[Rfam]
RNA sequence: UUAAAUCUUCGGGGCAGGGUGUAAUUCCCGACCGACGGUAAGCAACAUGAUGUUGUAAGUCCGUGACCCACUUUCUAAGUGGUUGAUCUGGUGUAAUUCCAGAACCGACAGUAAAGUCUGGAUGGGAGAAGAUUAAG
Numbered sequence: 001u002u003a004a005a006u007c008u009u010c011g012g013g014g015c016a017g018g019g020u021g022u023a024a025u026u027c028c029c030g031a032c033c034g035a036c037g038g039u040a041a042g043c044a045a046c047a048u049g050a051u052g053u054u055g056u057a058a059g060u061c062c063g064u065g066a067c068c069c070a071c072u073u074u075c076u077a078a079g080u081g082g083u084u085g086a087u088c089u090g091g092u093g094u095a096a097u098u099c100c101a102g103a104a105c106c107g108a109c110a111g112u113a114a115a116g117u118c119u120g121g122a123u124g125g126g127a128g129a130a131g132a133u134u135a136a137g
Stems, first nucleotide, its partner, number of pairs: 004134007017029003031117002033107002035064004059105002068082002087103005109120003
A member of the RNA family "FMN riboswitch aptamer (RFN element)" from Amphibacillus xylanus, 137 nucleotides long. It scores 124 bits against the family's covariance model. The base pairs follow the family's consensus structure, which is taken from published work.